[Rfam]
RNA sequence: CUUCACGGAGCCGAGCCAGAGGGGAUCGCGGUCGCCGCGGUCUUGUCCGUAGGUGGCCAGGAGGGCCUGGGCCUC
Numbered sequence: 001c002u003u004c005a006c007g008g009a010g011c012c013g014a015g016c017c018a019g020a021g022g023g024g025a026u027c028g029c030g031g032u033c034g035c036c037g038c039g040g041u042c043u044u045g046u047c048c049g050u051a052g053g054u055g056g057c058c059a060g061g062a063g064g065g066c067c068u069g070g071g072c073c074u075c
Stems, first nucleotide, its partner, number of pairs: 014026001016024002032070002038065001043060003047056003
RNA: ASpks TB sRNA
Organism: Streptomyces adustus